RNA sequence: GCCUUGCUAGCUCAAUCGGUAGAGCGUGUGACUCUUAAUACCUUUCAGAAGGAUGAAAGUCAUCACAAGGUUGGGGGUUCGAGCCCCCCGUAGGGCU
Numbered sequence: 001g002c003c004u005u006g007c008u009a010g011c012u013c014a015a016u017c018g019g020u021a022g023a024g025c026g027u028g029u030g031a032c033u034c035u036u037a038a039u040a041c042c043u044u045u046c047a048g049a050a051g052g053a054u055g056a057a058a059g060u061c062a063u064c065a066c067a068a069g070g071u072u073g074g075g076g077g078u079u080c081g082a083g084c085c086c087c088c089c090g091u092a093g094g095g096c097u
Base pairs, nucleotide, nucleotide: 001096002095003094004093005092006091007090010025011024012023013022027067028066029065030064031063073089074088075087076086077085
tRNA: a 97-nucleotide sequence from Blastobotrys ciferrii. The match comes from Rfam's covariance-model search (53 bits). Taxonomically the source falls in Blastobotrys (Eukaryota, Dikarya, Ascomycota, Dipodascomycetes).